[Rfam]
RNA sequence: GGAGCCAGCCGGACCAUCGCGCCGGCUUCGACGAGGCCGGUGAGGAAAGUCCGAACACCACAGGGCACCGUGCUUCCUAACGGGAAGGCCCGCCCACAGGGGCGGUGACGGCACGUGCAACAGAGAGCAGACCAGCCGAUGGCCCUUCGGGGCACAGGUGAUGGGUGAAACGGUGGGGUAAGAGCCCACCAGCGUCCCGGGUGACCGGGGCGGCUAGGUAAACCCCACGGGGUGCAAGGCCAAACAGCGCUGCACCGGCCCCGGCCGGAUAAGGUGGCCCGCCGAAUCGCAGCGCGGGUAGGCUGCUAGAGGCCGCCGGUGACGGCGGUCCCAGAUAAAUGAUGGUCUCCCCGGCCCCGGCGCGGCGGUCGCCGACCGGGCAGACAGAAUUCGGCUUACAGGCUGGCUCCAGCC
Numbered sequence: 001g002g003a004g005c006c007a008g009c010c011g012g013a014c015c016a017u018c019g020c021g022c023c024g025g026c027u028u029c030g031a032c033g034a035g036g037c038c039g040g041u042g043a044g045g046a047a048a049g050u051c052c053g054a055a056c057a058c059c060a061c062a063g064g065g066c067a068c069c070g071u072g073c074u075u076c077c078u079a080a081c082g083g084g085a086a087g088g089c090c091c092g093c094c095c096a097c098a099g100g101g102g103c104g105g106u107g108a109c110g111g112c113a114c115g116u117g118c119a120a121c122a123g124a125g126a127g128c129a130g131a132c133c134a135g136c137c138g139a140u141g142g143c144c145c146u147u148c149g150g151g152g153c154a155c156a157g158g159u160g161a162u163g164g165g166u167g168a169a170a171c172g173g174u175g176g177g178g179u180a181a182g183a184g185c186c187c188a189c190c191a192g193c194g195u196c197c198c199g200g201g202u203g204a205c206c207g208g209g210g211c212g213g214c215u216a217g218g219u220a221a222a223c224c225c226c227a228c229g230g231g232g233u234g235c236a237a238g239g240c241c242a243a244a245c246a247g248c249g250c251u252g253c254a255c256c257g258g259c260c261c262c263g264g265c266c267g268g269a270u271a272a273g274g275u276g277g278c279c280c281g282c283c284g285a286a287u288c289g290c291a292g293c294g295c296g297g298g299u300a301g302g303c304u305g306c307u308a309g310a311g312g313c314c315g316c317c318g319g320u321g322a323c324g325g326c327g328g329u330c331c332c333a334g335a336u337a338a339a340u341g342a343u344g345g346u347c348u349c350c351c352c353g354g355c356c357c358c359g360g361c362g363c364g365g366c367g368g369u370c371g372c373c374g375a376c377c378g379g380g381c382a383g384a385c386a387g388a389a390u391u392c393g394g395c396u397u398a399c400a401g402g403c404u405g406g407c408u409c410c411a412g413c414c
Base pairs, nucleotide, nucleotide: 001410002409003408004407005406006405007404008403009402010401011399012347013346014345015344016343017342018341020042021041022040023039024038025037026036027035028034047397048396049395051394052393053392054391055390056234057233058232059231063280064279065278066277068230069229070228071227072226073087074086075085076084077083088109089107091105110225111224115223116222117219118218132164133163135159136158137157140156141155142153143152144151145150172190173189174188175187176186177185192214193212194211195210196209197208198207199206200205238304239303240302241301248294249293250292251291252290253289273283274282275281311330312329313328314327315326316325317324318323
RNA: Bacterial RNase P class A